[Rfam]
This 37-nucleotide RNA sequence belongs to the Rfam family "abiF RNA".

RNA sequence: CCCUUCAUGCCUAUCAACGAUGCACAAACAGAAGGGG
Number, nucleotide and partner (000 for none) at each position: 001c036002c035003c034004u033005u032006c031007a000008u024009g023010c022011c000012u000013a000014u000015c000016a000017a000018c000019g000020a000021u000022g010023c009024a008025c000026a000027a000028a000029c000030a000031g006032a005033a004034g003035g002036g001037g000
Record summary
Actinobacteria, Bacteroidetes, Clostridia, Proteobacteria, one Clostridia phage. The family's RNA type in Rfam is small RNA. The family's consensus secondary structure is taken from published work.